[Rfam]
RNA sequence: AACAGGCGUUGAAACAUACCGUAGACAGUAGGUGCGUGAUUCGCUUAAUUUCCUACCGAGGUAAGCAAAUAGAUGAAAGUCUUUUGACUGGACUCGUAUGCCCUCAUGUCUGCAUGGGGGCAUUUUCGUUGGCCUC
Numbered sequence: 001a002a003c004a005g006g007c008g009u010u011g012a013a014a015c016a017u018a019c020c021g022u023a024g025a026c027a028g029u030a031g032g033u034g035c036g037u038g039a040u041u042c043g044c045u046u047a048a049u050u051u052c053c054u055a056c057c058g059a060g061g062u063a064a065g066c067a068a069a070u071a072g073a074u075g076a077a078a079g080u081c082u083u084u085u086g087a088c089u090g091g092a093c094u095c096g097u098a099u100g101c102c103c104u105c106a107u108g109u110c111u112g113c114a115u116g117g118g119g120g121c122a123u124u125u126u127c128g129u130u131g132g133c134c135u136c
Base pairs, nucleotide, nucleotide: 028056029055030054031053032052034044035043036042100121101120102119103118104117105116106115107114108113
Ribosomal protein L10 leader: a 136-nucleotide RNA sequence from Halalkalibacterium halodurans. Rfam's curators put it in the seed alignment. Lineage of the source: Bacteria > Bacilli > Bacillaceae > Halalkalibacterium (ex Joshi et al. 2022) > Halalkalibacterium halodurans.